[Rfam]
A member of the RNA family "Ascomycota telomerase RNA" from Leptographium clavigerum, 158 nucleotides of a longer RNA. Clan: Telomerase clan. The literature on the family includes a 2013 paper in Nucleic Acids Res by Qi et al., "The common ancestral core of vertebrate and fungal telomerase RNAs". By type it is a non-coding RNA gene. The organism belongs to Leptographium clavigerum, within Eukaryota.

RNA sequence: UUACCAAGGGCCGUGUCAUGCGGUUCUUCUCCUUUUCCUCCGGUUCAAGAACUGCAGAGAUGAUAGCGCGGUUUUUACAGAUGGUUUUGUCUGCGCGGAAACCAUGCCCUAGUCUCUGAUUUUUCACGAGAUGAAGGCAACAAAAUCUAGUCUUCGUC
Numbered sequence: 001u002u003a004c005c006a007a008g009g010g011c012c013g014u015g016u017c018a019u020g021c022g023g024u025u026c027u028u029c030u031c032c033u034u035u036u037c038c039u040c041c042g043g044u045u046c047a048a049g050a051a052c053u054g055c056a057g058a059g060a061u062g063a064u065a066g067c068g069c070g071g072u073u074u075u076u077a078c079a080g081a082u083g084g085u086u087u088u089g090u091c092u093g094c095g096c097g098g099a100a101a102c103c104a105u106g107c108c109c110u111a112g113u114c115u116c117u118g119a120u121u122u123u124u125c126a127c128g129a130g131a132u133g134a135a136g137g138c139a140a141c142a143a144a145a146u147c148u149a150g151u152c153u154u155c156g157u158c
Stems, first nucleotide, its partner, number of pairs: 008032003013028001015026001017022001036063002038059003042055001043052003080152003083147008107137002110133002113131004119124001